[Rfam]
RNA sequence: CUACCGAUGCCGCAAGGCAGAGGGAUGUUGACAGGGAAGUCAGCCGAGGUCGUAGUAGAGGCCGAACCUCGAAGGAC
Numbered sequence: 001c002u003a004c005c006g007a008u009g010c011c012g013c014a015a016g017g018c019a020g021a022g023g024g025a026u027g028u029u030g031a032c033a034g035g036g037a038a039g040u041c042a043g044c045c046g047a048g049g050u051c052g053u054a055g056u057a058g059a060g061g062c063c064g065a066a067c068c069u070c071g072a073a074g075g076a077c
Stems, first nucleotide, its partner, number of pairs: 001027001004023002008019004040047002049077003058070004
This 77-nucleotide RNA belongs to the Rfam family "Group II catalytic intron D1-D4-1". It is one of the family's seed sequences. Group II introns are found in rRNA, tRNA and mRNA of organelles in fungi, plants and protists, and also in mRNA in bacteria.